[Rfam]
RNA sequence: UUCGCCGAGGGGCGCUGCGACCCGAACCGUGCCAUGGCAUGGGUGCCGGGCCAGGCUCGGCGAUGUCUUCUUCGCAACGGCGCCCGGCAACC
Numbered sequence: 001u002u003c004g005c006c007g008a009g010g011g012g013c014g015c016u017g018c019g020a021c022c023c024g025a026a027c028c029g030u031g032c033c034a035u036g037g038c039a040u041g042g043g044u045g046c047c048g049g050g051c052c053a054g055g056c057u058c059g060g061c062g063a064u065g066u067c068u069u070c071u072u073c074g075c076a077a078c079g080g081c082g083c084c085c086g087g088c089a090a091c092c
Stems, first nucleotide, its partner, number of pairs: 002063007021050004
The family of this 92-nucleotide sequence from Pseudoxanthomonas composti is "SAH (S-adenosyl-L-homocysteine) riboswitch aptamer". On this family, see Wang et al., Mol Cell 2008: "Riboswitches that sense S-adenosylhomocysteine and activate genes involved in coenzyme recycling".